[Rfam]
RNA sequence: CCCAACGAUAGAGGCGCGGACACGAAGAGCUUGGGGCUAGCCGGCAGGCAUCGAUCCCCAAGGGAGGCCAAAUCCGCCGAACCCCGCUGAUGGGCACAUAUGCGGGGUGGGACCCGGGGAAAUACCCCGGGGACUGUCUGGCAAAAGUCAGGUGCGCUAUCCCCACG
Numbered sequence: 001c002c003c004a005a006c007g008a009u010a011g012a013g014g015c016g017c018g019g020a021c022a023c024g025a026a027g028a029g030c031u032u033g034g035g036g037c038u039a040g041c042c043g044g045c046a047g048g049c050a051u052c053g054a055u056c057c058c059c060a061a062g063g064g065a066g067g068c069c070a071a072a073u074c075c076g077c078c079g080a081a082c083c084c085c086g087c088u089g090a091u092g093g094g095c096a097c098a099u100a101u102g103c104g105g106g107g108u109g110g111g112a113c114c115c116g117g118g119g120a121a122a123u124a125c126c127c128c129g130g131g132g133a134c135u136g137u138c139u140g141g142c143a144a145a146a147g148u149c150a151g152g153u154g155c156g157c158u159a160u161c162c163c164c165a166c167g
Stems, first nucleotide, its partner, number of pairs: 007161005016077005024069001030062007081108007090099003109135002113131007137152006